[Rfam]
RNA sequence: UGUUCAUUCUAAGUAGUAGUGCCGCAGGUAAGAGGAAUAUUAAAUACUUACCUGAUCAUUGCUACUUAAACUGACA
Number, nucleotide and partner (000 for none) at each position: 001u076002g075003u074004u073005c000006a000007u070008u000009c000010u068011a067012a066013g065014u064015a063016g062017u061018a060019g059020u000021g000022c000023c000024g000025c054026a053027g052028g051029u050030a049031a000032g000033a000034g000035g000036a000037a000038u000039a000040u000041u000042a000043a000044a000045u000046a000047c000048u000049u030050a029051c028052c027053u026054g025055a000056u000057c000058a000059u019060u018061g017062c016063u015064a014065c013066u012067u011068a010069a000070a007071c000072u000073g004074a003075c002076a001